The family of this 68-nucleotide sequence is "tRNA". The family's RNA type in Rfam is transfer RNA.

RNA sequence: AGAAAUUUAGGUUAAAUACAGACCAAGAGCCUUCAAAGCCCUCAGUAAGUUGCAAUACUUAAUUUCUG
Numbered sequence: 001a002g003a004a005a006u007u008u009a010g011g012u013u014a015a016a017u018a019c020a021g022a023c024c025a026a027g028a029g030c031c032u033u034c035a036a037a038g039c040c041c042u043c044a045g046u047a048a049g050u051u052g053c054a055a056u057a058c059u060u061a062a063u064u065u066c067u068g
Stems, first nucleotide, its partner, number of pairs: 001067007010024004026042002029039002047060004
Background
Rfam's curators write: Transfer RNA (tRNA) molecules are approximately 80 nucleotides in length. Their secondary structure includes four short double-helical elements and three loops (D, anti-codon, and T loops). Further hydrogen bonds mediate the characteristic L-shaped molecular structure. tRNAs have two regions of fundamental functional importance: the anti-codon, which is responsible for specific mRNA codon recognition, and the 3' end, to which the tRNAs corresponding amino acid is attached (by aminoacyl-tRNA synthetases). tRNAs cope with the degeneracy of the genetic code in two manners: having more than one tRNA (with a specific anti-codon) for a particular amino acid; and 'wobble' base-pairing, i.e. permitting non-standard base-pairing at the 3rd anti-codon position.